[Rfam]
RNA sequence: UGGGAGAAUCUGUAAAGCUCAGGAGGGAUAGCGCCAUGGUUCGUAUCAAUAAUAAUAUUAUUACACCUUCCAUUUUCUUUCAAUGGCGCUAUCCAUCCUGAGUUUCAUAGCUUCUUCUU
Numbered sequence: 001u002g003g004g005a006g007a008a009u010c011u012g013u014a015a016a017g018c019u020c021a022g023g024a025g026g027g028a029u030a031g032c033g034c035c036a037u038g039g040u041u042c043g044u045a046u047c048a049a050u051a052a053u054a055a056u057a058u059u060a061u062u063a064c065a066c067c068u069u070c071c072a073u074u075u076u077c078u079u080u081c082a083a084u085g086g087c088g089c090u091a092u093c094c095a096u097c098c099u100g101a102g103u104u105u106c107a108u109a110g111c112u113u114c115u116u117c118u119u
Base pairs, nucleotide, nucleotide: 010110016104017103018102019101020100021099022098023097024096026094027093028092029091030090031089032088033087034086035085
RNA: MIR390 microRNA precursor family